The record is a 60-nucleotide sequence from Caenorhabditis brenneri, which matches "mir-7637 microRNA precursor family" in Rfam. Rfam's curators put it in the seed alignment. Its family is annotated with RISC complex and miRNA-mediated post-transcriptional gene silencing in the Gene Ontology. Pairs were carried over by alignment from the consensus structure, which was predicted with RNAalifold. The organism belongs to Caenorhabditis, within Eukaryota.
[Rfam]
RNA sequence: AGAGUUAAAGGCGUAUCUCUACUAUAAAAUGGAUAGUAGAGGUAUACCCAUUAGCUCUGA
Numbered sequence: 001a002g003a004g005u006u007a008a009a010g011g012c013g014u015a016u017c018u019c020u021a022c023u024a025u026a027a028a029a030u031g032g033a034u035a036g037u038a039g040a041g042g043u044a045u046a047c048c049c050a051u052u053a054g055c056u057c058u059g060a
Base pairs, nucleotide, nucleotide: 001058002057003056004055005054006053007052008051010049011048013045014044015043016042017041018040019039020038021037022036023035024034025033